[Rfam]
RNA sequence: CGGGAGAAGCGUUGUUAAGGAACUCGGCAAAAUGACCCCGUAACUUCGGGAGAAGGGGUGCCUGUAGAAAUACAGGCCGCAGAGAAUAGGCCCAAGCGACUGUUUAGCAAAAACACAGGUCUCUGCAAAACCGAAAGGUGAAGUAUAGGGGCUGACGCCUGCCCGGUGCUGGAAGGUUAAGGGGAGUGGUUAGGAGCAAUCCGAAGCUAUGAACUUAAGCCCCAGUAAACGGCGGCCGUAACUAUAACGGUCCUAAGGUAGCGAAAUUCCUUGUCGGGUAAGUUCCGACCCGCACGAAAGGCGUAACGAUUUGGGCACUGUCUCGACAACGCGCCCG
Numbered sequence: 001c002g003g004g005a006g007a008a009g010c011g012u013u014g015u016u017a018a019g020g021a022a023c024u025c026g027g028c029a030a031a032a033u034g035a036c037c038c039c040g041u042a043a044c045u046u047c048g049g050g051a052g053a054a055g056g057g058g059u060g061c062c063u064g065u066a067g068a069a070a071u072a073c074a075g076g077c078c079g080c081a082g083a084g085a086a087u088a089g090g091c092c093c094a095a096g097c098g099a100c101u102g103u104u105u106a107g108c109a110a111a112a113a114c115a116c117a118g119g120u121c122u123c124u125g126c127a128a129a130a131c132c133g134a135a136a137g138g139u140g141a142a143g144u145a146u147a148g149g150g151g152c153u154g155a156c157g158c159c160u161g162c163c164c165g166g167u168g169c170u171g172g173a174a175g176g177u178u179a180a181g182g183g184g185a186g187u188g189g190u191u192a193g194g195a196g197c198a199a200u201c202c203g204a205a206g207c208u209a210u211g212a213a214c215u216u217a218a219g220c221c222c223c224a225g226u227a228a229a230c231g232g233c234g235g236c237c238g239u240a241a242c243u244a245u246a247a248c249g250g251u252c253c254u255a256a257g258g259u260a261g262c263g264a265a266a267u268u269c270c271u272u273g274u275c276g277g278g279u280a281a282g283u284u285c286c287g288a289c290c291c292g293c294a295c296g297a298a299a300g301g302c303g304u305a306a307c308g309a310u311u312u313g314g315g316c317a318c319u320g321u322c323u324c325g326a327c328a329a330c331g332c333g334c335c336c337g
Base pairs, nucleotide, nucleotide: 001337002336003335004334009332010331011330012329013328014327015326016325018323019322020321035059036058037057038056039055044049060077061076062075063074064073065072066071078082090316091315092314093313094312095311096310097308098307101115102114103113118153119152120151121150122149123148124147125146126143130139131138132137156303157302158301159300161233162232163231166230167229168226169225170224171223172222175221176220177219181215182214186210187209188208189207190206193202194201234252235251236250237249238248239247253257263290273289274288275287276286277285278284